[Rfam]
Nucleotides: 505
Base pairs, nucleotide, nucleotide: 006390007389008388009387010386011385018328019327021325025322028319031316032315036312037311038310040308041307042306047303049301050300051299052298054233055232058229059228060227061226062225063224064223065111066110067109068108075103076101077100078099080097081096083094084093118221122217123216127212129210130209131206133204134203140197143196144195149192150191154188155187156186159183160178161177166173167172235295236294240290241289242288243287245285249283250282252280254278256277257276258275261270262269329342330341331340352378354376356374357373360372361371362370363369391431392430393429394428395427396426397425399423401421403418405416407415437476438475440473442471443470446467447465448464449463450462451461452460477504478503480499481498482497484495486493
Number, partner (000 for none) and nucleotide at each position: 001000u002000u003000c004000g005000c006390g007389g008388u009387g010386u011385a012000c013000u014000c015000c016000c017000a018328g019327g020000u021325g022000c023000c024000g025322u026000c027000c028319c029000c030000g031316u032315c033000g034000a035000g036312c037311a038310g039000c040308g041307c042306c043000u044000g045000c046000u047303c048000g049301c050300c051299g052298a053000a054233g055232u056000g057000g058229u059228c060227g061226c062225c063224g064223u065111c066110g067109g068108c069000c070000a071000g072000g073000a074000c075103g076101c077100c078099g079000a080097g081096c082000c083094g084093g085000g086000u087000c088000g089000c090000c091000u092000c093084c094083c095000c096081g097080u098000a099078c100077g101076g102000a103075c104000c105000c106000u107000c108068g109067c110066c111065g112000a113000g114000c115000u116000u117000u118221u119000c120000g121000a122217c123216c124000u125000u126000g127212c128000c129210g130209u131206g132000c133204g134203c135000c136000a137000c138000c139000a140197g141000g142000u143196a144195g145000a146000c147000g148000g149192u150191g151000u152000c153000g154188g155187c156186g157000c158000u159183c160178u161177c162000g163000c164000c165000g166173g167172c168000g169000u170000g171000u172167g173166c174000g175000a176000u177161g178160a179000c180000c181000u182000c183159g184000c185000c186156c187155g188154u189000g190000u191150c192149g193000a194000a195144c196143u197140c198000g199000c200000g201000c202000u203134g204133c205000a206131c207000g208000a209130a210129c211000c212127g213000g214000u215000c216123g217122g218000c219000g220000a221118g222000c223064g224063c225062g226061g227060u228059g229058a230000g231000c232055g233054c234000c235295u236294c237000g238000a239000c240290g241289u242288u243287g244000c245285c246000g247000a248000a249283c250282g251000a252280g253000c254278g255000c256277a257276g258275c259000g260000c261270c262269g263000c264000c265000a266000g267000c268000u269262c270261g271000c272000c273000c274000a275258g276257u277256u278254c279000c280252u281000g282250c283249g284000g285245g286000a287243u288242g289241a290240c291000c292000c293000g294236g295235a296000c297000c298052u299051c300050g301049g302000a303047g304000c305000c306042g307041g308040u309000c310038u311037u312036g313000a314000c315032g316031a317000a318000c319028g320000u321000c322025a323000c324000c325021c326000g327019c328018c329342c330341g331340u332000c333000g334000c335000c336000c337000a338000c339000c340331g341330c342329g343000u344000a345000g346000c347000u348000g349000a350000g351000c352378c353000g354376c355000c356374g357373g358000u359000u360372c361371a362370c363369c364000c365000g366000g367000u368000a369363g370362g371361u372360g373357c374356c375000c376354g377000a378352g379000u380000u381000c382000a383000c384000c385011u386010g387009c388008a389007c390006c391431c392430a393429g394428g395427g396426c397425a398000g399423c400000a401421c402000c403418u404000u405416c406000a407415g408000c409000a410000g411000c412000c413000a414000c415407c416405g417000c418403g419000a420000g421401g422000a423399g424000a425397u426396g427395c428394c429393c430392u431391g432000c433000a434000u435000c436000u437476g438475c439000g440473g441000g442471g443470c444000c445000g446467a447465c448464u449463u450462g451461g452460u453000g454000g455000u456000g457000g458000u459000g460452g461451c462450c463449a464448a465447g466000g467446u468000g469000c470443g471442c472000g473440c474000g475438g476437c477504g478503g479000c480499c481498g482497u483000g484495u485000c486493c487000a488000g489000g490000c491000u492000c493486g494000u495484a496000c497482g498481c499480g500000c501000g502000u503478c504477c505000u
The record is a 505-nucleotide RNA sequence from Actinacidiphila guanduensis, which matches "Saccharopolyspora sRNA 350" in Rfam. The match comes from Rfam's covariance-model search (160 bits). The source organism's lineage runs through Bacteria, Actinomycetota, Actinomycetes, Kitasatosporales and Actinacidiphila.